[Rfam]
RNA: ASpks TB sRNA
RNA sequence: CUUCAGCGAGCCGAGCCACAGGGGCCGGUCGGCGGGGCGCUCCUUGCCGUAGGUGGCGAUGAGGGCCUGCGCCUC
Dot-bracket structure: ..............(((.....)))......((....(.....((.(((....))).)).....)...)).....